Small nucleolar RNA SNORA9: a 134-nucleotide sequence from Chordeiles acutipennis. The match comes from Rfam's covariance-model search (115 bits). About the family: ACA9 is a member of the H/ACA class of snoRNA that guide the sites of modification of uridines to pseudouridines.
RNA sequence: CCGCAAGCCUUCCAGCGUGGGGGGGCCUGCCGUGGCCUCCACCAUUCCUACUGCGCUUGCCAGAGGAACCCCGGGACGGUUUGAGGCCUCUCCCCGCUCAGCCCGGGGGAAGGUUAUAGAUAUCCCGGACACCC
Numbered sequence: 001c002c003g004c005a006a007g008c009c010u011u012c013c014a015g016c017g018u019g020g021g022g023g024g025g026c027c028u029g030c031c032g033u034g035g036c037c038u039c040c041a042c043c044a045u046u047c048c049u050a051c052u053g054c055g056c057u058u059g060c061c062a063g064a065g066g067a068a069c070c071c072c073g074g075g076a077c078g079g080u081u082u083g084a085g086g087c088c089u090c091u092c093c094c095c096g097c098u099c100a101g102c103c104c105g106g107g108g109g110a111a112g113g114u115u116a117u118a119g120a121u122a123u124c125c126c127g128g129a130c131a132c133c134c
Stems, first nucleotide, its partner, number of pairs: 003060006018044003023038005072127005087113003091109002094106003

The source organism's lineage runs through Eukaryota, Eumetazoa, Vertebrata, Teleostomi and Chordeiles.
By type it is an H/ACA-box small nucleolar RNA.